[Rfam]
RNA sequence: AACUUAUUAUGGCAAGCCCGGAACAAUCCGGCGGCGCAAAACUAUAGGGCCUAAAAUGUUAACAUUAUGGCGGCCAGUUGCCGCG
Numbered sequence: 001a002a003c004u005u006a007u008u009a010u011g012g013c014a015a016g017c018c019c020g021g022a023a024c025a026a027u028c029c030g031g032c033g034g035c036g037c038a039a040a041a042c043u044a045u046a047g048g049g050c051c052u053a054a055a056a057u058g059u060u061a062a063c064a065u066u067a068u069g070g071c072g073g074c075c076a077g078u079u080g081c082c083g084c085g
Base pairs, nucleotide, nucleotide: 012037013036018031019030020029021028022027040079041078042077043076047075048074049071050070051069056065057064058063
c-di-GMP-I riboswitch aptamer: an 85-nucleotide RNA sequence from Sporobacter termitidis. Lineage of the source: Bacteria > Bacillota > Clostridia > Eubacteriales > Sporobacter termitidis. Rfam's curators write: GEMM was predicted in a large-scale screen for bacterial structured RNA regulatory elements. Its family is annotated with cyclic-di-GMP binding in the Gene Ontology.